This 198-nucleotide RNA from Paulinella micropora belongs to the Rfam family "psaA RNA". It scores 106 bits against the family's covariance model. Lineage of the source: Eukaryota > Rhizaria > Cercozoa > Paulinellidae > Paulinella. It is annotated as a cis-regulatory element.
[Rfam]
RNA sequence: CCUAUGCUUUUGUCAGCGGUCCCAUGCAUGGGGACCCCAAGUUCCAGUAGCGAAAAGCAGUUUAGCUGCUUAAAAGCUCUGGUGCUCGUAAGGUUAUUUAUUAUUAAUAACCCUGCGAGUCCCAUCGAUUAGGGUCUUACUCUAAUCGUAGGGGUGAAUUUCCACCUCGACCCCGUCCCUCGAGGAACGACUCGAUGA
Numbered sequence: 001c002c003u004a005u006g007c008u009u010u011u012g013u014c015a016g017c018g019g020u021c022c023c024a025u026g027c028a029u030g031g032g033g034a035c036c037c038c039a040a041g042u043u044c045c046a047g048u049a050g051c052g053a054a055a056a057g058c059a060g061u062u063u064a065g066c067u068g069c070u071u072a073a074a075a076g077c078u079c080u081g082g083u084g085c086u087c088g089u090a091a092g093g094u095u096a097u098u099u100a101u102u103a104u105u106a107a108u109a110a111c112c113c114u115g116c117g118a119g120u121c122c123c124a125u126c127g128a129u130u131a132g133g134g135u136c137u138u139a140c141u142c143u144a145a146u147c148g149u150a151g152g153g154g155u156g157a158a159u160u161u162c163c164a165c166c167u168c169g170a171c172c173c174c175g176u177c178c179c180u181c182g183a184g185g186a187a188c189g190a191c192u193c194g195a196u197g198a
Base pairs, nucleotide, nucleotide: 018159020157021154022153023152025150026149027148030126031123032122033121034120035119041085042084044082045081046080047079049078050077051076055071056070057069058068059067060066061065087117088116089115090114092112093111094110095109096108097107098106127147128146129145130144131143132142133141134140135139165185166184167183168182169181170180